[Rfam]
RNA sequence: UGCGGUCGGAUAUUCAACCACACACGCGUCGUCACAUGUUGCCGGGUGCCCGCCGGGAUCGCUGCCUGGGGGGUUGCUGCAUGGGACGCGUGGAGGCCUAAC
Numbered sequence: 001u002g003c004g005g006u007c008g009g010a011u012a013u014u015c016a017a018c019c020a021c022a023c024a025c026g027c028g029u030c031g032u033c034a035c036a037u038g039u040u041g042c043c044g045g046g047u048g049c050c051c052g053c054c055g056g057g058a059u060c061g062c063u064g065c066c067u068g069g070g071g072g073g074u075u076g077c078u079g080c081a082u083g084g085g086a087c088g089c090g091u092g093g094a095g096g097c098c099u100a101a102c
Stems, first nucleotide, its partner, number of pairs: 023092008035083005041077002048074004